[Rfam]
Overview: A member of the RNA family "Bacterial RNase P class A" from Luteimonas yindakuii, 363 nucleotides long. The base pairs follow the family's consensus structure, which is taken from published work. The literature on the family includes a 2013 paper in RNA Biol by Beauregard et al., "Identification and characterization of small RNAs in Yersinia pestis". The match comes from Rfam's covariance-model search (316 bits). Lineage of the source: Bacteria > Pseudomonadati > Gammaproteobacteria > Lysobacterales > Luteimonas.

RNA sequence: GGAGUCGGCCGGACAGUCGCGUCAUCGCUUGCGAUGCCGAGGAAAGUCCGGGCUCCACAGGGCACGGUGCCAGGUAAUGCCUGGGCGGCGCGAGCCGACGGAAAGUGCAACAGAAAGAUACCGCCGAUGGCCGGGCGUCCUUCGGGGCGAGCGGAUCAGGCAAGGGUGAAAUGGUGCGGUAAGAGCGCACCGCGAGUCUGGCAACAGACCGGCACGGCAAACCCCACCGGGAGCAAGACCAAAUAGGGACCUCAUGGCGCGGCCCGCGUCGGGUCCGGGUAGGUUGCUCGAGCGUAUCGGUGACGAUGCGCCUAGAGGAAUGACUGUCCACGACAGAACCCGGCUUACAGGCCGGCUCCGCCA
Number, nucleotide and partner (000 for none) at each position: 001g359002g358003a357004g356005u355006c354007g353008g352009c351010c350011g348012g328013a327014c326015a325016g324017u323018c322019g000020c039021g038022u000023c036024a035025u034026c033027g032028c000029u000030u000031g000032c027033g026034a025035u024036g023037c000038c021039g020040a000041g000042g000043a000044a346045a345046g344047u000048c343049c342050g341051g340052g339053c233054u232055c231056c230057a000058c000059a000060g265061g264062g263063c262064a000065c229066g228067g227068u226069g225070c084071c083072a082073g081074g080075u000076a000077a000078u000079g000080c074081c073082u072083g071084g070085g099086c097087g096088g095089c094090g000091c000092g000093a000094g089095c088096c087097g086098a000099c085100g224101g223102a000103a000104a000105g222106u221107g218108c217109a000110a000111c000112a000113g000114a000115a000116a000117g000118a000119u000120a000121c165122c164123g161124c160125c159126g000127a000128u158129g157130g156131c000132c154133g000134g000135g000136c000137g000138u000139c000140c000141u000142u000143c000144g000145g000146g000147g000148c000149g000150a000151g000152c000153g000154g132155a000156u130157c129158a128159g125160g124161c123162a000163a000164g122165g121166g000167u000168g000169a000170a000171a000172u000173g191174g190175u189176g188177c187178g186179g000180u000181a000182a000183g000184a000185g000186c178187g177188c176189a175190c174191c173192g213193c211194g210195a000196g209197u208198c207199u206200g205201g000202c000203a000204a000205c200206a199207g198208a197209c196210c194211g193212g000213c192214a000215c000216g000217g108218c107219a000220a000221a106222c105223c101224c100225c069226a068227c067228c066229g065230g056231g055232a054233g053234c000235a000236a000237g285238a284239c283240c282241a000242a000243a000244u000245a000246g000247g276248g275249a274250c273251c272252u271253c000254a000255u000256g270257g269258c268259g267260c266261g000262g063263c062264c061265c060266g260267c259268g258269u257270c256271g252272g251273g250274u249275c248276c247277g000278g000279g000280u000281a000282g240283g239284u238285u237286g000287c000288u000289c000290g000291a000292g311293c310294g309295u308296a307297u306298c305299g304300g000301u000302g000303a000304c299305g298306a297307u296308g295309c294310g293311c292312c000313u000314a000315g000316a000317g000318g000319a000320a000321u000322g018323a017324c016325u015326g014327u013328c012329c000330a000331c000332g000333a000334c000335a000336g000337a000338a000339c052340c051341c050342g049343g048344c046345u045346u044347a000348c011349a000350g010351g009352c008353c007354g006355g005356c004357u003358c002359c001360g000361c000362c000363a000